Notes:
The family of this 304-nucleotide RNA sequence from Solanum lycopersicum is "Plant signal recognition particle RNA". The family's consensus secondary structure is taken from published work.
[Rfam]
RNA sequence: GCCGAGCUUAGUAAUGUGGGCUUGUAACCCAAAUGGGGGCAUUAAUGUGGUGGAAUGUUGGGCUGUACCAGAUGGUUGGGCUUGGUGGGCUAAUUUCUGGCCUGCCCUAUCCAAGCACAGAGUUGGAUCAUGUGGUCCAAUUGAAAGAAUGGGCUACUAGAUUCCUAAAGUGGGGUGGACCGCGUGAGGCUGGUUUCACAGAGCAACGAAAAACUUCCGCUUUGUGCAGUGGAAGGAUAACGGACCGGUGCCUUCCAAGUUCCAUUAAUGCCUGAUGGGCUGCUCCAAUUAAACCACCACUUUU
Numbered sequence: 001g002c003c004g005a006g007c008u009u010a011g012u013a014a015u016g017u018g019g020g021c022u023u024g025u026a027a028c029c030c031a032a033a034u035g036g037g038g039g040c041a042u043u044a045a046u047g048u049g050g051u052g053g054a055a056u057g058u059u060g061g062g063c064u065g066u067a068c069c070a071g072a073u074g075g076u077u078g079g080g081c082u083u084g085g086u087g088g089g090c091u092a093a094u095u096u097c098u099g100g101c102c103u104g105c106c107c108u109a110u111c112c113a114a115g116c117a118c119a120g121a122g123u124u125g126g127a128u129c130a131u132g133u134g135g136u137c138c139a140a141u142u143g144a145a146a147g148a149a150u151g152g153g154c155u156a157c158u159a160g161a162u163u164c165c166u167a168a169a170g171u172g173g174g175g176u177g178g179a180c181c182g183c184g185u186g187a188g189g190c191u192g193g194u195u196u197c198a199c200a201g202a203g204c205a206a207c208g209a210a211a212a213a214c215u216u217c218c219g220c221u222u223u224g225u226g227c228a229g230u231g232g233a234a235g236g237a238u239a240a241c242g243g244a245c246c247g248g249u250g251c252c253u254u255c256c257a258a259g260u261u262c263c264a265u266u267a268a269u270g271c272c273u274g275a276u277g278g279g280c281u282g283c284u285c286c287a288a289u290u291a292a293a294c295c296a297c298c299a300c301u302u303u304u
Stems, first nucleotide, its partner, number of pairs: 001040003004023007028037003044303002047300007056291002058288003061284003065280002068278003074272003078262008087254003091250002097248004102243003106236002110233004115227009125164005132157008141148002165170001172217005183208003190201003

Clan: SRP clan. It is annotated as a non-coding RNA gene.